[Rfam]
RNA sequence: CUCUAUUUUACCCUCAUUGUACAUGCUGUGUGUAUUUAUAUCACGUACACAGCGCAUGCAAUGUGGACAUAAUAGAG
Number, nucleotide and partner (000 for none) at each position: 001c000002u000003c000004u000005a000006u000007u000008u000009u000010a000011c000012c066013c065014u000015c063016a062017u061018u060019g059020u058021a057022c000023a000024u054025g000026c052027u051028g050029u049030g048031u047032g000033u000034a000035u000036u000037u000038a000039u000040a000041u000042c000043a000044c000045g000046u000047a031048c030049a029050c028051a027052g026053c000054g024055c000056a000057u021058g020059c019060a018061a017062u016063g015064u000065g013066g012067a000068c000069a000070u000071a000072a000073u000074a000075g000076a000077g000
A member of the RNA family "mir-460 microRNA precursor family" from Geotrypetes seraphini, 77 nucleotides long. A reference for the family is Xu et al. (2006), "Identification of microRNAs from different tissues of chicken embryo and adult chicken", FEBS Lett. It scores 80 bits against the family's covariance model. The family's consensus secondary structure was predicted with RNAalifold.